[Rfam]
RNA sequence: GAAAUAGAACGCUAGGGUUCCGAUCAGGCUCGCACAUAAUUGAAGAGAUAGCCUUGAUGACUGGUCCAAGAGCAUUCGACCUCCCCCUUUUCGUUAAGGCAUAGGUUACACGGCGGGACAAAAGCCCGGGAGAA
Number, nucleotide and partner (000 for none) at each position: 001g000002a000003a000004a000005u000006a000007g077008a076009a075010c000011g073012c072013u000014a000015g067016g066017g000018u000019u000020c064021c063022g061023a058024u057025c056026a055027g054028g053029c000030u000031c000032g000033c000034a000035c000036a000037u000038a000039a000040u000041u000042g000043a000044a000045g000046a000047g000048a000049u000050a000051g000052c000053c028054u027055u026056g025057a024058u023059g000060a000061c022062u000063g021064g020065u000066c016067c015068a000069a000070g000071a000072g012073c011074a000075u009076u008077c007078g107079a106080c105081c104082u103083c000084c000085c000086c000087c000088u000089u000090u000091u000092c000093g000094u000095u000096a000097a000098g000099g000100c000101a000102u000103a082104g081105g080106u079107u078108a000109c129110a000111c132112g000113g000114c000115g127116g126117g125118a000119c000120a000121a000122a000123a000124g000125c117126c116127c115128g000129g109130g000131a000132g111133a000134a000

The family of this 134-nucleotide RNA from Bermanella marisrubri is "Guanidine-I riboswitch aptamer". The match comes from Rfam's covariance-model search (76 bits).